Rfam assigns this 226-nucleotide RNA sequence from Pseudomonas sp. URIL14HWK12:I9 to the family "Nitrogen regulated small RNA". About the family: Found in the opportunistic pathogen Pseudomonas aeruginosa PAO1. Its transcription is induced during nitrogen limitation by the NtrB/C two-component system (an important regulator of nitrogen assimilation and swarming motility) together with the alternative sigma factor RpoN (a global regulator involved in nitrogen metabolism). By activating rhlA (a gene essential for rhamnolipids synthesis) it positively regulates the production of rhamnolipid surfactants needed for swarming motility. Its family is annotated with bacterial-type flagellum-dependent swarming motility in the Gene Ontology. Pairs were carried over by alignment from the consensus structure.

[Rfam]
RNA sequence: CAACCCGUUUAGGGGACCUUGGUACAGGCAGGCCGGGGAAUCCCCACUUUAUGACCGGGACUCGUUGGCCAGCAGGCCACGAGCCCAACACGCUUUUGGGGGCCUUUGGUACAGGCAGGCCGGAGAACCCCCUCUUUACAUCGAAGGCCGCGGCCCCGCCGCCCUUCAGCCCUUCGGGGACCCUGGUACAGGCAGGCCGGGUGCUCCCCUUCUUUAUUACAGUUCC
Numbered sequence: 001c002a003a004c005c006c007g008u009u010u011a012g013g014g015g016a017c018c019u020u021g022g023u024a025c026a027g028g029c030a031g032g033c034c035g036g037g038g039a040a041u042c043c044c045c046a047c048u049u050u051a052u053g054a055c056c057g058g059g060a061c062u063c064g065u066u067g068g069c070c071a072g073c074a075g076g077c078c079a080c081g082a083g084c085c086c087a088a089c090a091c092g093c094u095u096u097u098g099g100g101g102g103c104c105u106u107u108g109g110u111a112c113a114g115g116c117a118g119g120c121c122g123g124a125g126a127a128c129c130c131c132c133u134c135u136u137u138a139c140a141u142c143g144a145a146g147g148c149c150g151c152g153g154c155c156c157c158g159c160c161g162c163c164c165u166u167c168a169g170c171c172c173u174u175c176g177g178g179g180a181c182c183c184u185g186g187u188a189c190a191g192g193c194a195g196g197c198c199g200g201g202u203g204c205u206c207c208c209c210u211u212c213u214u215u216a217u218u219a220c221a222g223u224u225c226c
Stems, first nucleotide, its partner, number of pairs: 012045005017038007058086002061083001066079005098132005105124006143166002146163002150159003176209005182201006